[Rfam]
RNA sequence: CAGUUUCGAGGUGGGAACGGCCUCCCCACGCACCCGAGAGGGUUAGUAGCCGCAAGGUGAAGAGAUCCAGGACUUGGCGCCCUGGCGAAAAUA
Numbered sequence: 001c002a003g004u005u006u007c008g009a010g011g012u013g014g015g016a017a018c019g020g021c022c023u024c025c026c027c028a029c030g031c032a033c034c035c036g037a038g039a040g041g042g043u044u045a046g047u048a049g050c051c052g053c054a055a056g057g058u059g060a061a062g063a064g065a066u067c068c069a070g071g072a073c074u075u076g077g078c079g080c081c082c083u084g085g086c087g088a089a090a091a092u093a
Stems, first nucleotide, its partner, number of pairs: 002092001004090005011029005020078003031062001032043004067085005

Rfam assigns this 93-nucleotide sequence from Hoeflea marina to the family "skipping-rope RNA". The match comes from Rfam's covariance-model search (58 bits).